[Rfam]
Nucleotides: 071
Stems, first nucleotide, its partner, number of pairs: 024066005031059005036053003
Number, partner (000 for none) and nucleotide at each position: 001000u002000g003000g004000a005000g006000u007000g008000u009000g010000a011000g012000g013000a014000g015000u016000a017000a018000a019000g020000u021000u022000g023000a024066a025065a026064a027063g028062c029000g030000u031059u032058u033057g034056g035055g036053g037052u038051c039000g040000a041000a042000a043000c044000a045000c046000g047000g048000c049000a050000a051038g052037a053036c054000u055035c056034c057033c058032a059031a060000a061000c062028g063027c064026u065025u066024u067000u068000c069000c070000a071000u